[Rfam]
Rfam assigns this 94-nucleotide RNA from Streptococcus sp. DD13 to the family "skipping-rope RNA".

RNA sequence: AGAGAUAGAGGUUGAAAAGUAUCCGCCUCCAACGCGCCACCUUUAUAGGUGGGUCUAGAAAUGCGGGCGACCUUCGGCGGUCCCGCCUAUCUCA
Numbered sequence: 001a002g003a004g005a006u007a008g009a010g011g012u013u014g015a016a017a018a019g020u021a022u023c024c025g026c027c028u029c030c031a032a033c034g035c036g037c038c039a040c041c042u043u044u045a046u047a048g049g050u051g052g053g054u055c056u057a058g059a060a061a062u063g064c065g066g067g068c069g070a071c072c073u074u075c076g077g078c079g080g081u082c083c084c085g086c087c088u089a090u091c092u093c094a
Stems, first nucleotide, its partner, number of pairs: 002093007011033004023080005035058001037052006063086005
The family's RNA type in Rfam is small RNA.
NCBI's taxonomy places the organism under Bacteria, Bacillati, Bacilli, Lactobacillales, Streptococcus.
The match comes from Rfam's covariance-model search (50 bits).